[Rfam]
RNA sequence: GGCUUGUCAAUGAUGUUUCGUAUCAAAAAUGUCUGAACAUAUGAGUUUCAUAGUGAUUUCAGUGCAUUGCUGAGACAAGCU
Numbered sequence: 001g002g003c004u005u006g007u008c009a010a011u012g013a014u015g016u017u018u019c020g021u022a023u024c025a026a027a028a029a030u031g032u033c034u035g036a037a038c039a040u041a042u043g044a045g046u047u048u049c050a051u052a053g054u055g056a057u058u059u060c061a062g063u064g065c066a067u068u069g070c071u072g073a074g075a076c077a078a079g080c081u
Stems, first nucleotide, its partner, number of pairs: 002080007
Dot-bracket structure: .(((((((.................................................................))))))).

The record is an 81-nucleotide RNA sequence from Crypturellus soui, which matches "Small nucleolar RNA SNORD72" in Rfam. Gene Ontology terms of the family: RNA processing and nucleolus. A reference for the family is Huttenhofer et al. (2001), "RNomics: an experimental approach that identifies 201 candidates for novel, small, non-messenger RNAs in mouse", EMBO J. Rfam 15.1 lists 726 matches to the family in 499 species. A search with the family's covariance model found it, with a score of 78 bits. The organism belongs to Crypturellus, within Eukaryota. By type it is a C/D-box small nucleolar RNA. snoRNA HBII-240 belongs to the CD family of snoRNAs. It is the human orthologue of the mouse MBII-240 and is predicted to guide 2'O-ribose methylation of the large 28S rRNA at residue U4590.